[Rfam]
RNA sequence: CUUGCCGAGAGGCGCUGCGACGGACCCGAGGGUCCGCCACGCUCGGCCUGCGGGCCAAUGACGCAAGGGCGCCUCCUGACC
Numbered sequence: 001c002u003u004g005c006c007g008a009g010a011g012g013c014g015c016u017g018c019g020a021c022g023g024a025c026c027c028g029a030g031g032g033u034c035c036g037c038c039a040c041g042c043u044c045g046g047c048c049u050g051c052g053g054g055c056c057a058a059u060g061a062c063g064c065a066a067g068g069g070c071g072c073c074u075c076c077u078g079a080c081c
Stems, first nucleotide, its partner, number of pairs: 004047005021036006
Overview: SAH (S-adenosyl-L-homocysteine) riboswitch aptamer: an 81-nucleotide RNA from Pseudosporangium ferrugineum. A search with the family's covariance model found it, with a score of 38 bits. NCBI's taxonomy places the organism under Bacteria, Bacillati, Actinomycetes, Micromonosporales, Pseudosporangium. Rfam links the family to the GO terms S-adenosylhomocysteine metabolic process and regulation of gene expression.